[Rfam]
RNA sequence: UCACUCUGGUUUCUCUUCAUAACACACAAGUCUUUCACCUUUUACUAAAGACUUCCUUGGAGGGGAACAACGAUGCGUUGAAACUGUUGGGGAAAUCCUUCUAUAAACUGACAACUGACUC
Numbered sequence: 001u002c003a004c005u006c007u008g009g010u011u012u013c014u015c016u017u018c019a020u021a022a023c024a025c026a027c028a029a030g031u032c033u034u035u036c037a038c039c040u041u042u043u044a045c046u047a048a049a050g051a052c053u054u055c056c057u058u059g060g061a062g063g064g065g066a067a068c069a070a071c072g073a074u075g076c077g078u079u080g081a082a083a084c085u086g087u088u089g090g091g092g093a094a095a096u097c098c099u100u101c102u103a104u105a106a107a108c109u110g111a112c113a114a115c116u117g118a119c120u121c
Stems, first nucleotide, its partner, number of pairs: 003078002006075001009068011028054008110121002
The family of this 121-nucleotide sequence from Etheostoma spectabile is "U5 spliceosomal RNA". The family has 180 seed sequences and 28,527 matches in Rfam 15.1. Lineage of the source: Eukaryota > Eumetazoa > Euteleostomi > Etheostoma > Oligocephalus. Rfam classes the family as a spliceosomal small nuclear RNA.